Rfam assigns this 97-nucleotide sequence from Caenorhabditis japonica to the family "mir-253 microRNA precursor family". The literature on the family includes a 2009 paper in Genome Biol by Kato et al., "Dynamic expression of small non-coding RNAs, including novel microRNAs and piRNAs/21U-RNAs, during Caenorhabditis elegans development". The base pairs follow the family's consensus structure, which was predicted with RNAalifold.
RNA sequence: UAUUUCGAGUUGCAGCCAUUCUCACACACCUCACUAUCACAGACGCGAUCGUCUAGAUGUUAGUAGGCGUUGUGGGAAGGGCGGCGAUGGCGAAAAG
Number, nucleotide and partner (000 for none) at each position: 001u000002a000003u095004u094005u093006c092007g091008a000009g088010u087011u086012g085013c084014a000015g082016c081017c080018a000019u078020u077021c076022u075023c074024a073025c072026a071027c069028a000029c067030c066031u065032c000033a064034c063035u062036a061037u000038c059039a058040c056041a000042g054043a000044c000045g000046c000047g000048a000049u000050c000051g000052u000053c000054u042055a000056g040057a000058u039059g038060u000061u036062a035063g034064u033065a031066g030067g029068c000069g027070u000071u026072g025073u024074g023075g022076g021077a020078a019079g000080g017081g016082c015083g000084g013085c012086g011087a010088u009089g000090g000091c007092g006093a005094a004095a003096a000097g000
Notes:
Lineage of the source: Eukaryota > Opisthokonta > Chromadorea > Peloderinae > Caenorhabditis.